[Rfam]
RNA sequence: ACCCCAGCAAAGAGCUAACACCACCUCAGAGUGAGUGCCGGAGAUAAGCGCCGGGCGGGGUAUAACAG
Numbered sequence: 001a002c003c004c005c006a007g008c009a010a011a012g013a014g015c016u017a018a019c020a021c022c023a024c025c026u027c028a029g030a031g032u033g034a035g036u037g038c039c040g041g042a043g044a045u046a047a048g049c050g051c052c053g054g055g056c057g058g059g060g061u062a063u064a065a066c067a068g
Stems, first nucleotide, its partner, number of pairs: 002060004014036003038054004043049001

The record is a 68-nucleotide RNA sequence from Kosakonia cowanii, which matches "rydB RNA" in Rfam. The source organism's lineage runs through Bacteria, Pseudomonadati, Enterobacterales, Kosakonia and Kosakonia cowanii. This family consists of several bacterial sequences from E. coli, Shigella flexneri and Salmonella species. This RNA gene was discovered by an RNA screen between the ydiC and ydiH in E. coli. This gene is only 67 bases in length and is composed of a hairpin like structure.